RNA sequence: GGUGGACAGUUCCAAAGGGAUCGCAUUGAUCCCAUGGUUAUCUUCCACCUCUCUUACCAGACUAUCAUAACAAAGUCUGGCCUUUUUCCCAUUGGAUCAUGCUAUCCCUUAGGAACUCUCCAUCA
Numbered sequence: 001g002g003u004g005g006a007c008a009g010u011u012c013c014a015a016a017g018g019g020a021u022c023g024c025a026u027u028g029a030u031c032c033c034a035u036g037g038u039u040a041u042c043u044u045c046c047a048c049c050u051c052u053c054u055u056a057c058c059a060g061a062c063u064a065u066c067a068u069a070a071c072a073a074a075g076u077c078u079g080g081c082c083u084u085u086u087u088c089c090c091a092u093u094g095g096a097u098c099a100u101g102c103u104a105u106c107c108c109u110u111a112g113g114a115a116c117u118c119u120c121c122a123u124c125a
Stems, first nucleotide, its partner, number of pairs: 002123005008117006015110007023102004028098005
Rfam assigns this 125-nucleotide RNA from Vitis vinifera to the family "mir-393 microRNA precursor family". The base pairs follow the family's consensus structure. Its family is annotated with RISC complex and miRNA-mediated post-transcriptional gene silencing in the Gene Ontology. The family has 27 seed sequences and 1,052 matches in Rfam 15.1. NCBI's taxonomy places the organism under Eukaryota, Embryophyta, Spermatophyta, Pentapetalae, Vitis. The literature on the family includes a 2012 paper in J Plant Physiol by Kruszka et al., "Role of microRNAs and other sRNAs of plants in their changing environments".